[Rfam]
RNA sequence: CACAUCCACUAGGGGAGCCGAAGAGGCUGAGACGGACAGAAGUCCGGACCCUUUGAACCUGAUCUGGAUCAUACCAGCGGAGGGAAGUGGCGCGACCGUUCU
Numbered sequence: 001c002a003c004a005u006c007c008a009c010u011a012g013g014g015g016a017g018c019c020g021a022a023g024a025g026g027c028u029g030a031g032a033c034g035g036a037c038a039g040a041a042g043u044c045c046g047g048a049c050c051c052u053u054u055g056a057a058c059c060u061g062a063u064c065u066g067g068a069u070c071a072u073a074c075c076a077g078c079g080g081a082g083g084g085a086a087g088u089g090g091c092g093c094g095a096c097c098g099u100u101c102u
Stems, first nucleotide, its partner, number of pairs: 006090005011052004017027003034045004058083003064077004

The record is a 102-nucleotide sequence from Tetzosporium hominis, which matches "TPP riboswitch aptamer (THI element)" in Rfam. It scores 79 bits against the family's covariance model. Rfam describes the family as follows. Vitamin B(1) in its active form thiamin pyrophosphate (TPP) is an essential coenzyme that is synthesised by coupling of pyrimidine and thiazole moieties in bacteria. The family's consensus secondary structure is taken from published work.